RNA sequence: GUCGGGCUUGGUAACGUGAGCCUGUGACCCAAGUGGGGACACCAAAGACAUGGAACGUUGUAUCUGCCCAACUGGCCGAACUCCAUGUGGCAAACUCUUGGCUCGCCCAUUUCAAGCUGAGAGUAGAGCCAUGUGAUUUAGGCUAAAGCUUGGGUCACUUGGCGCCUAAAGUGGAGGGCAACGCGUUAGGCUGGCUUCACAGAGCAGCGACUACCUCCCGCUCCUGGCAGUGGAAGGAUAACGGGUCGGUGCCCCUGGAGGUCAAAUGGCUUUGAUGGGCUGUGCAUACUGGACCAUGUCCUUU
Numbered sequence: 001g002u003c004g005g006g007c008u009u010g011g012u013a014a015c016g017u018g019a020g021c022c023u024g025u026g027a028c029c030c031a032a033g034u035g036g037g038g039a040c041a042c043c044a045a046a047g048a049c050a051u052g053g054a055a056c057g058u059u060g061u062a063u064c065u066g067c068c069c070a071a072c073u074g075g076c077c078g079a080a081c082u083c084c085a086u087g088u089g090g091c092a093a094a095c096u097c098u099u100g101g102c103u104c105g106c107c108c109a110u111u112u113c114a115a116g117c118u119g120a121g122a123g124u125a126g127a128g129c130c131a132u133g134u135g136a137u138u139u140a141g142g143c144u145a146a147a148g149c150u151u152g153g154g155u156c157a158c159u160u161g162g163c164g165c166c167u168a169a170a171g172u173g174g175a176g177g178g179c180a181a182c183g184c185g186u187u188a189g190g191c192u193g194g195c196u197u198c199a200c201a202g203a204g205c206a207g208c209g210a211c212u213a214c215c216u217c218c219c220g221c222u223c224c225u226g227g228c229a230g231u232g233g234a235a236g237g238a239u240a241a242c243g244g245g246u247c248g249g250u251g252c253c254c255c256u257g258g259a260g261g262u263c264a265a266a267u268g269g270c271u272u273u274g275a276u277g278g279g280c281u282g283u284g285c286a287u288a289c290u291g292g293a294c295c296a297u298g299u300c301c302u303u304u
Base pairs, nucleotide, nucleotide: 001040002039003038004023005022006021007020008019009018010017028037029036030035044303045302047300048299049298050297051296052295053294056291057290059288060287061286064282066280067279068278069277070276072274074272075271077269078263079262081260082259083258084257085256087255089253090252093250098249099248100247101246102245103244104243105242107237108236110235111234112233113232114231116228117227118226119225121223122222123221124220126165128163129162130161131160133158134157135156136155137154138153139152140151141150142149143148166171173218174217175216176215177214184209185208186207191202192201193200